Shown here is a 509-nucleotide sequence from Furnarius figulus, a member of the family "Vertebrate telomerase RNA". For this family Rfam cites "Secondary structure of vertebrate telomerase RNA" (Chen et al., Cell, 2000).
[Rfam]
RNA sequence: CGGGCCGGGCCGUGUGGGGAGUUCCCUGCGCUCUAACCCUAAAUGGCGCCGGCGCCCCCCGCGCCCCACCCCGCGCCCGCCCGCUGUUUUCGUCGCUGGCUUUCAGCGGGCUCGGGGAGCGGCCCGGGGGGCUAGGAGGGGAGGGAGGCAUAGGCAAAAAGGGGGAGGAGUCUGCCAUUGUAGACAAAACAAACAAACAAACAAAAAAAACGUCAGCGAGGGGGGGUCCUCAUUCCGGCUCGGCCUGGGCGCCCCCUCAGCCCCUCAGCCCGGGGCGCUCCCGCCGCGGCGCGGAGGCUGCGGCCGGCCGGCUCAGAGCCAGUGGCCCCGCGAAGAGCUCGCCUCUGUGGGCCUCGGCCGCGGGUCCGGGAGCCGAGGGGGCACCCCCCGCCUCACCCUGCCCCGGGGCCAGGGGAGCCCAGCACAGCAAAACGGGAACGGCGCCGCAGGGCCGAGCAGCCGCGGCUCCCUCAGCAGUGGGGUACGCGGCCGGCGCCGCCCCGACAGCG
Number, nucleotide and partner (000 for none) at each position: 001c000002g000003g000004g000005c243006c242007g241008g240009g239010c238011c237012g236013u000014g233015u232016g231017g230018g229019g228020a000021g227022u226023u225024c224025c223026c000027u000028g000029c000030g000031c000032u000033c000034u000035a000036a000037c000038c000039c000040u000041a000042a000043a000044u000045g000046g000047c000048g000049c000050c000051g000052g000053c000054g000055c000056c000057c000058c000059c000060c000061g000062c000063g120064c119065c000066c117067c116068a000069c000070c000071c000072c000073g000074c000075g000076c000077c000078c000079g111080c110081c109082c108083g107084c106085u105086g104087u000088u000089u000090u000091c000092g000093u000094c000095g217096c216097u215098g214099g213100c212101u210102u209103u208104c086105a085106g084107c083108g082109g081110g080111c079112u000113c000114g000115g000116g067117g066118a000119g064120c063121g000122g000123c000124c000125c000126g000127g000128g000129g000130g000131g000132c000133u000134a000135g000136g000137a000138g000139g000140g000141g000142a000143g000144g000145g000146a000147g000148g000149c000150a000151u000152a000153g000154g000155c000156a000157a000158a000159a000160a000161g000162g000163g000164g000165g000166a000167g000168g000169a000170g000171u000172c000173u000174g000175c000176c000177a000178u000179u000180g000181u000182a000183g000184a000185c000186a000187a000188a000189a000190c000191a000192a000193a000194c000195a000196a000197a000198c000199a000200a000201a000202c000203a000204a000205a000206a000207a000208a103209a102210a101211c000212g100213u099214c098215a097216g096217c095218g000219a000220g000221g000222g000223g025224g024225g023226g022227u021228c019229c018230u017231c016232a015233u014234u000235c000236c012237g011238g010239c009240u008241c007242g006243g005244c000245c422246u421247g420248g419249g418250c417251g000252c000253c000254c000255c000256c000257u000258c000259a000260g000261c380262c379263c378264c377265u376266c375267a000268g000269c000270c000271c000272g000273g000274g000275g000276c000277g373278c372279u371280c370281c369282c368283g367284c000285c362286g361287c360288g359289g358290c000291g000292c000293g000294g000295a000296g000297g000298c000299u332300g331301c330302g329303g328304c000305c000306g326307g000308c324309c000310g320311g319312c318313u000314c000315a000316g000317a000318g312319c311320c310321a000322g000323u000324g308325g000326c306327c000328c303329c302330g301331c300332g299333a000334a346335g345336a344337g343338c000339u000340c000341g000342c000343c337344u336345c335346u334347g000348u000349g000350g000351g000352c000353c000354u000355c000356g000357g000358c289359c288360g287361c286362g285363g000364g000365u000366c000367c283368g282369g281370g280371a279372g278373c277374c000375g266376a265377g264378g263379g262380g261381g000382c000383a000384c000385c000386c000387c000388c000389c000390g000391c000392c000393u000394c000395a000396c000397c000398c000399u000400g000401c000402c000403c000404c000405g000406g000407g000408g000409c000410c000411a000412g000413g000414g000415g000416a000417g250418c249419c248420c247421a246422g245423c000424a000425c000426a000427g000428c000429a000430a000431a000432a000433c000434g000435g500436g499437a000438a000439c000440g497441g496442c495443g494444c493445c492446g000447c000448a000449g000450g000451g000452c000453c000454g000455a000456g000457c000458a000459g000460c489461c488462g487463c486464g485465g000466c000467u482468c481469c480470c479471u000472c000473a000474g000475c000476a000477g000478u000479g470480g469481g468482g467483u000484a000485c464486g463487c462488g461489g460490c000491c000492g445493g444494c443495g442496c441497c440498g000499c436500c435501c000502c000503g000504a000505c000506a000507g000508c000509g000
Notes:
The family has 37 seed sequences and 523 matches in Rfam 15.1. The organism belongs to Furnarius, within Eukaryota. Clan: Telomerase clan. About the family: Telomerase is a ribonucleoprotein reverse transcriptase that synthesises telomeric DNA. Telomerase RNAs differ greatly in sequence and structure between vertebrates, ciliates and yeasts, but they share a 5' pseudoknot structure close to the template sequence.